[Rfam]
RNA sequence: GCUUUGCUGUAGGGUAGAAGGAAAGAGGCGCUACCCUAUCAGCUGCCCCCUCUCCCAUCCUUUCCUUCUGCAGGAGC
Numbered sequence: 001g002c003u004u005u006g007c008u009g010u011a012g013g014g015u016a017g018a019a020g021g022a023a024a025g026a027g028g029c030g031c032u033a034c035c036c037u038a039u040c041a042g043c044u045g046c047c048c049c050c051u052c053u054c055c056c057a058u059c060c061u062u063u064c065c066u067u068c069u070g071c072a073g074g075a076g077c
Base pairs, nucleotide, nucleotide: 001077002076003075007073008072009071010070011069012068013065014064016061017060019058020056021055024053025052026051027050028049030047032045033044035042

This 77-nucleotide sequence from Opisthocomus hoazin belongs to the Rfam family "mir-1759 microRNA precursor family".
Rfam 15.1 lists 319 matches to the family in 319 species.